[Rfam]
Description: The record is a 511-nucleotide sequence from Sphaerisporangium melleum, which matches "Saccharopolyspora sRNA 350" in Rfam. Gene Ontology term of the family: regulation of secondary metabolite biosynthetic process. The family's RNA type in Rfam is antisense RNA. The literature on the family includes a 2013 paper in PLoS One by Liu et al., "Prediction and characterization of small non-coding RNAs related to secondary metabolites in Saccharopolyspora erythraea".

RNA sequence: CUGAUCGUGUGCUCCCAGGGUGCCGGAUCGGCGUCGGCCAGGGCGUGGUCGCCGUAGUACUCGCCGUCGGCCAGGACGGCCAGGGUGGUCUGCUCGCCGUACUCGCCGACGCCGAUCUUGUUGACCUUGCCGUGCGCGAUGAGGAUCAGCCCGUCGGCGGCCUCGCCGAGCUGCGCGAUGGUGUCGCCGGGCUCGUGCUGGUGCUGGGUGAAGCGGCCGGCCAUGGCCUCAAGGAUGCCGUCGUCGGGGAAGCUGCGCAGCAACGCGAGCUCGCGCAGCUCAGGGGGGACGACCCGUACGUCGUUGCCCUGGUUGGUGAAGCUCAGCCGCCCGUCCCCGAUGGCGUAGGUGAGGCGGCGGUUGACGCGGUAGGCGCCGCCGGGGGUGUUGACCCAGGGCAGCAUGCGCAGCAGCCACCGGGAGGAGAUGUUCUGCAUCUGCGGCUGCGACUUGGUGGUCGUCGCCAGGUUGCGCGCCGCCGCAGUGGCCAGGCUCUGCUGCGGCCUGCCGU
Numbered sequence: 001c002u003g004a005u006c007g008u009g010u011g012c013u014c015c016c017a018g019g020g021u022g023c024c025g026g027a028u029c030g031g032c033g034u035c036g037g038c039c040a041g042g043g044c045g046u047g048g049u050c051g052c053c054g055u056a057g058u059a060c061u062c063g064c065c066g067u068c069g070g071c072c073a074g075g076a077c078g079g080c081c082a083g084g085g086u087g088g089u090c091u092g093c094u095c096g097c098c099g100u101a102c103u104c105g106c107c108g109a110c111g112c113c114g115a116u117c118u119u120g121u122u123g124a125c126c127u128u129g130c131c132g133u134g135c136g137c138g139a140u141g142a143g144g145a146u147c148a149g150c151c152c153g154u155c156g157g158c159g160g161c162c163u164c165g166c167c168g169a170g171c172u173g174c175g176c177g178a179u180g181g182u183g184u185c186g187c188c189g190g191g192c193u194c195g196u197g198c199u200g201g202u203g204c205u206g207g208g209u210g211a212a213g214c215g216g217c218c219g220g221c222c223a224u225g226g227c228c229u230c231a232a233g234g235a236u237g238c239c240g241u242c243g244u245c246g247g248g249g250a251a252g253c254u255g256c257g258c259a260g261c262a263a264c265g266c267g268a269g270c271u272c273g274c275g276c277a278g279c280u281c282a283g284g285g286g287g288g289a290c291g292a293c294c295c296g297u298a299c300g301u302c303g304u305u306g307c308c309c310u311g312g313u314u315g316g317u318g319a320a321g322c323u324c325a326g327c328c329g330c331c332c333g334u335c336c337c338c339g340a341u342g343g344c345g346u347a348g349g350u351g352a353g354g355c356g357g358c359g360g361u362u363g364a365c366g367c368g369g370u371a372g373g374c375g376c377c378g379c380c381g382g383g384g385g386u387g388u389u390g391a392c393c394c395a396g397g398g399c400a401g402c403a404u405g406c407g408c409a410g411c412a413g414c415c416a417c418c419g420g421g422a423g424g425a426g427a428u429g430u431u432c433u434g435c436a437u438c439u440g441c442g443g444c445u446g447c448g449a450c451u452u453g454g455u456g457g458u459c460g461u462c463g464c465c466a467g468g469u470u471g472c473g474c475g476c477c478g479c480c481g482c483a484g485u486g487g488c489c490a491g492g493c494u495c496u497g498c499u500g501c502g503g504c505c506u507g508c509c510g511u
Stems, first nucleotide, its partner, number of pairs: 007392002011388002014385003018331002025328002028325001030323003034319002038316004045309001048308001050306002053303002057236002060233002063230001066227002068114004078106001080105001082103002085100005122223002125220002130215001133212001134209002137206002141202001142199002149194001153192003157188001161180001164177003237299001243293004253285002257281001259280003264273002332345004355381006365373001394434007402426001404424001406421001408419001410418001440479004446474003449470001450468006480510002484504002487501001489500003
Dot-bracket structure: ......((..((.(((.((.....((.(.(((.((..((((...(..(.((.((..((.((.(..((((((......(.(.((.(((((......))))).)).))....)))).......((.((...(..(((.((..(((.....(...(((.(...(..(((........)))..).......).))).)...))..)..)).))..)..)...)).))..))..).)).))(.....((((......((..(.(((..((......))....))))..))....)))).....)..)).)).))...)))).)).))).).)).))((((......)))).........((((((....(.......)..)))))).))).))..)).(((((((.(.(.(.(.(.......)).)..).).))))))).....((((..((((((((((.......)))))).).))).))))((..((.(.(((......)))).))....)).